[Rfam]
RNA sequence: UGUCCCAUUCGCAAGGAGAAUAGGCACUGUUGAUCAUGCCAUCCAGAGGUGGUUAAUGGGGCUACAUUGAGAUAUAAGCUAUGCUUGCAUCACAGCAAAGGCAUUGCAUUGGUGACAAUGAGACCUGUAACAUCU
Numbered sequence: 001u002g003u004c005c006c007a008u009u010c011g012c013a014a015g016g017a018g019a020a021u022a023g024g025c026a027c028u029g030u031u032g033a034u035c036a037u038g039c040c041a042u043c044c045a046g047a048g049g050u051g052g053u054u055a056a057u058g059g060g061g062c063u064a065c066a067u068u069g070a071g072a073u074a075u076a077a078g079c080u081a082u083g084c085u086u087g088c089a090u091c092a093c094a095g096c097a098a099a100g101g102c103a104u105u106g107c108a109u110u111g112g113u114g115a116c117a118a119u120g121a122g123a124c125c126u127g128u129a130a131c132a133u134c135u
Stems, first nucleotide, its partner, number of pairs: 002062003006058003021045001023043002074128003078124001088114005
Shown here is a 135-nucleotide sequence from Aotus nancymaae, a member of the family "Small nucleolar RNA SNORA1".
Rfam's curators write: ACA1 is a member of the H/ACA class of snoRNA that guide the sites of modification of uridines to pseudouridines.
Rfam classes the family as an H/ACA-box small nucleolar RNA.
It scores 106 bits against the family's covariance model.
Rfam links the family to the GO terms RNA processing and nucleolus.